Description:
Rfam assigns this 136-nucleotide sequence from Senna tora to the family "Small nucleolar RNA U19". The family's RNA type in Rfam is H/ACA-box small nucleolar RNA. The match comes from Rfam's covariance-model search (85 bits). Lineage of the source: Eukaryota > eudicotyledons > Pentapetalae > fabids > Senna. A reference for the family is Marker et al. (2002), "Experimental RNomics: identification of 140 candidates for small non-messenger RNAs in the plant Arabidopsis thaliana", Curr Biol. Rfam 15.1 lists 421 matches to the family in 201 species. The base pairs follow the family's consensus structure, which was predicted with WAR.

[Rfam]
RNA sequence: AUCUGGCUUAGUUAGGAGGCACACAUCAAUGGGAUCCAAUCAAGCCGUUCUGGUUUCUUGGAUCCUUUCGAGGCCUUUUUGAAGGGACACAUUGUUCUUCAUCCCUCAGUUGUCCCUCAAGCAGCUUCUCACAUUA
Numbered sequence: 001a002u003c004u005g006g007c008u009u010a011g012u013u014a015g016g017a018g019g020c021a022c023a024c025a026u027c028a029a030u031g032g033g034a035u036c037c038a039a040u041c042a043a044g045c046c047g048u049u050c051u052g053g054u055u056u057c058u059u060g061g062a063u064c065c066u067u068u069c070g071a072g073g074c075c076u077u078u079u080u081g082a083a084g085g086g087a088c089a090c091a092u093u094g095u096u097c098u099u100c101a102u103c104c105c106u107c108a109g110u111u112g113u114c115c116c117u118c119a120a121g122c123a124g125c126u127u128c129u130c131a132c133a134u135u136a
Base pairs, nucleotide, nucleotide: 004021005020007018008017009016034063035062036061037060038059042056043055044054045053046052070128071127072126073125074124078121079120080119081118083117084116085115086114087113088112089111